[Rfam]
RNA sequence: UCGUGCUAGGCGGGGAGGUAGCGGUGCCCUGAACUCGCAAUCCGCUGUAGCGAGGCUGAAUUCCUCUUUUCGGUUAGUCCAGCGUAUAGUCUGGCGAAAGUAAGUGGUGUUGACGUCUGGGUCCUGCGCAACGGAGACCCAUGAACCCUGUCAGGUCCGGAAGGAAGCAGCAGUAAGUGGCCAUCUCUGUGUGCCGCGGGACAGCCUGGGCUGAGCUAACUGCUUUCGUACGUGUAGGUUGGCUAUUCCAACGAGAGGUGCACGG
Numbered sequence: 001u002c003g004u005g006c007u008a009g010g011c012g013g014g015g016a017g018g019u020a021g022c023g024g025u026g027c028c029c030u031g032a033a034c035u036c037g038c039a040a041u042c043c044g045c046u047g048u049a050g051c052g053a054g055g056c057u058g059a060a061u062u063c064c065u066c067u068u069u070u071c072g073g074u075u076a077g078u079c080c081a082g083c084g085u086a087u088a089g090u091c092u093g094g095c096g097a098a099a100g101u102a103a104g105u106g107g108u109g110u111u112g113a114c115g116u117c118u119g120g121g122u123c124c125u126g127c128g129c130a131a132c133g134g135a136g137a138c139c140c141a142u143g144a145a146c147c148c149u150g151u152c153a154g155g156u157c158c159g160g161a162a163g164g165a166a167g168c169a170g171c172a173g174u175a176a177g178u179g180g181c182c183a184u185c186u187c188u189g190u191g192u193g194c195c196g197c198g199g200g201a202c203a204g205c206c207u208g209g210g211c212u213g214a215g216c217u218a219a220c221u222g223c224u225u226u227c228g229u230a231c232g233u234g235u236a237g238g239u240u241g242g243c244u245a246u247u248c249c250a251a252c253g254a255g256a257g258g259u260g261c262a263c264g265g
Base pairs, nucleotide, nucleotide: 001265002264003263004262005261006260009057010056011055012030013029014028015027017025019023034054035053036052037051038050063258064257065256066255067254068253072248073247075245076244079242080241081240082239083238085236086235087234088233092230093229096227097226098225099224100223101222104220105219106217107216108215115211116210117209118208119207120206121205122204123200124199125198126197127196128195129191130190132189133188134187135186136185139180140179141178142177148173149172150171151170156165157164158163